[Rfam]
RNA sequence: GAGCUGUGAAGAAGAUUUGAAGGGAAUCUGAGAUUGUGCUGAAGCCGUAAGAUCCAACUCUGAGCUCUCUGCC
Numbered sequence: 001g002a003g004c005u006g007u008g009a010a011g012a013a014g015a016u017u018u019g020a021a022g023g024g025a026a027u028c029u030g031a032g033a034u035u036g037u038g039c040u041g042a043a044g045c046c047g048u049a050a051g052a053u054c055c056a057a058c059u060c061u062g063a064g065c066u067c068u069c070u071g072c073c
Base pairs, nucleotide, nucleotide: 001067002066003065004064
Dot-bracket structure: ((((...........................................................))))......
Annotation
Shown here is a 73-nucleotide RNA sequence from Alectura lathami, a member of the family "Small nucleolar RNA SNORD19". The base pairs follow the family's consensus structure. Lineage of the source: Eukaryota > Deuterostomia > Dipnotetrapodomorpha > Saurischia > Alectura. Its Rfam clan is "SNORD19 clan". Rfam links the family to the GO terms nucleolus and RNA processing.